[Rfam]
RNA sequence: CUGGUCCAAAGGUAGUGAGUUAUUCCAAUUGAUUGUUCACAAAGACUAAACUUGUUUUAAUGCUUCCCUCCUUCUCACUAUUGCACUUGACUUG
Dot-bracket structure: (.((((.((..((((((((........((.((........................)).))............))))))...))..)))))).)
Shown here is a 94-nucleotide RNA from Saimiri boliviensis, a member of the family "Y RNA". A search with the family's covariance model found it, with a score of 47 bits. NCBI's taxonomy places the organism under Eukaryota, Deuterostomia, Craniata, Amniota, Saimiri boliviensis. The family's RNA type in Rfam is non-coding RNA gene.